Shown here is a 137-nucleotide sequence from Actinomyces sp. S6-Spd3, a member of the family "c-di-AMP riboswitch aptamer (ydaO/yuaA leader)".

RNA sequence: GAGAUUGGGAAACUAAGGUUCAACGCGGGGAAACCAAUUCCGACCCUUCGCGGUCUUGGGGUGAAGCUUGGGAAACCAAGCCGGGCACUCCCGCCCGAACCCGACAGCUCACCUCGCAGGUCUAAGAGGAGAAAAUU
Numbered sequence: 001g002a003g004a005u006u007g008g009g010a011a012a013c014u015a016a017g018g019u020u021c022a023a024c025g026c027g028g029g030g031a032a033a034c035c036a037a038u039u040c041c042g043a044c045c046c047u048u049c050g051c052g053g054u055c056u057u058g059g060g061g062u063g064a065a066g067c068u069u070g071g072g073a074a075a076c077c078a079a080g081c082c083g084g085g086c087a088c089u090c091c092c093g094c095c096c097g098a099a100c101c102c103g104a105c106a107g108c109u110c111a112c113c114u115c116g117c118a119g120g121u122c123u124a125a126g127a128g129g130a131g132a133a134a135a136u137u
Stems, first nucleotide, its partner, number of pairs: 005023005025117006035058002059102003067080004083096004